Rfam assigns this 62-nucleotide RNA to the family "DUF3800-II RNA".
[Rfam]
RNA sequence: GAAACAAGGCAUUUAGGACAAAUCCCAGUGGGAAAGUCGCAAGACUACUAAACCGCCUGACC
Numbered sequence: 001g002a003a004a005c006a007a008g009g010c011a012u013u014u015a016g017g018a019c020a021a022a023u024c025c026c027a028g029u030g031g032g033a034a035a036g037u038c039g040c041a042a043g044a045c046u047a048c049u050a051a052a053c054c055g056c057c058u059g060a061c062c
Base pairs, nucleotide, nucleotide: 007058008057009056010055012052013051014050015049016048023033024032025031026030035046036045037044038043

Notes
Rfam classes the family as a small RNA.